Rfam assigns this 86-nucleotide RNA sequence from Aneurinibacillus sp. XH2 to the family "Group II catalytic intron D1-D4-1". Rfam 15.1 lists 2,508 matches to the family in 1,144 species. A search with the family's covariance model found it, with a score of 68 bits. A reference for the family is Bonen and Vogel (2001), "The ins and outs of group II introns", Trends Genet.
RNA sequence: UAACCUCAUUCGCGAGAAUGAGUUGAACAGACAGAAGUCAGCAGAGGUCAUAGUACAUGCCAUGUGACGACAUGACAUGGAAGGGC
Number, nucleotide and partner (000 for none) at each position: 001u025002a024003a000004c000005c022006u021007c020008a019009u018010u017011c016012g000013c000014g000015a000016g011017a010018a009019u008020g007021a006022g005023u000024u002025g001026a000027a000028c000029a000030g000031a000032c000033a000034g000035a000036a000037g000038u045039c044040a000041g000042c000043a000044g039045a038046g000047g086048u085049c084050a000051u000052a000053g000054u000055a000056c079057a078058u077059g076060c000061c074062a000063u000064g000065u000066g000067a000068c000069g000070a000071c000072a000073u000074g061075a000076c059077a058078u057079g056080g000081a000082a000083g000084g049085g048086c047